[Rfam]
A member of the RNA family "Histone 3' UTR stem-loop" from Cyprinus carpio, 46 nucleotides long. Gene Ontology term of the family: mRNA 3'-end processing by stem-loop binding and cleavage. A search with the family's covariance model found it, with a score of 43 bits. A reference for the family is Williams and Marzluff (1995), "The sequence of the stem and flanking sequences at the 3' end of histone mRNA are critical determinants for the binding of the stem-loop binding protein", Nucleic Acids Res. Rfam describes the family as follows. The mRNAs of metazoan histone genes lack a poly-A tail. 3' end processing occurs at a site between a highly conserved stem-loop (modelled by this family) and a purine rich region around 20 nts downstream (the histone downstream element, or HDE). The family's RNA type in Rfam is cis-regulatory element. The family's consensus secondary structure is taken from published work.

RNA sequence: CCAACGGCUCUUUUAAGAGCCACCCACACUCUCACAAAGAGUUAAU
Numbered sequence: 001c002c003a004a005c006g007g008c009u010c011u012u013u014u015a016a017g018a019g020c021c022a023c024c025c026a027c028a029c030u031c032u033c034a035c036a037a038a039g040a041g042u043u044a045a046u
Stems, first nucleotide, its partner, number of pairs: 006021006